[Rfam]
SAM riboswitch aptamer (S box leader): a 111-nucleotide RNA from Kyrpidia spormannii. It scores 91 bits against the family's covariance model. The base pairs follow the family's consensus structure, which is taken from published work.
RNA sequence: CUCUUAUCGAGAGUGGUGGAGGGACUGGCCCGAUGAAACCCGGCAACCACCGCCAGAAGGCGGAGAGGUGCCAAUUCCUGCAGGACCUGGGUGGAUCCUGAGAGAUAAGAG
Numbered sequence: 001c002u003c004u005u006a007u008c009g010a011g012a013g014u015g016g017u018g019g020a021g022g023g024a025c026u027g028g029c030c031c032g033a034u035g036a037a038a039c040c041c042g043g044c045a046a047c048c049a050c051c052g053c054c055a056g057a058a059g060g061c062g063g064a065g066a067g068g069u070g071c072c073a074a075u076u077c078c079u080g081c082a083g084g085a086c087c088u089g090g091g092u093g094g095a096u097c098c099u100g101a102g103a104g105a106u107a108a109g110a111g
Base pairs, nucleotide, nucleotide: 001111002110003109004108005107006106007105008104013041015040016039017038021031022030023029025080027078028077042072043071044070045069047068048067050063051062052061076103081100082099083098084097085096